This 62-nucleotide sequence from Saimiri boliviensis belongs to the Rfam family "U7 small nuclear RNA". Taxonomically the source falls in Saimiri boliviensis (Eukaryota, Metazoa, Tetrapoda, Theria). The match comes from Rfam's covariance-model search (37 bits). On this family, see Spycher et al., Nucleic Acids Res 1994: "3' end processing of mouse histone pre-mRNA: evidence for additional base-pairing between U7 snRNA and pre-mRNA".
RNA sequence: CGAAGUUACAGCUUCCAGAAUUUGUCUAGGGGGUUUUCCAGUUUUCACCUGAAAAUGCCCCC
Numbered sequence: 001c002g003a004a005g006u007u008a009c010a011g012c013u014u015c016c017a018g019a020a021u022u023u024g025u026c027u028a029g030g031g032g033g034u035u036u037u038c039c040a041g042u043u044u045u046c047a048c049c050u051g052a053a054a055a056u057g058c059c060c061c062c
Stems, first nucleotide, its partner, number of pairs: 032059003035055003039051003042047001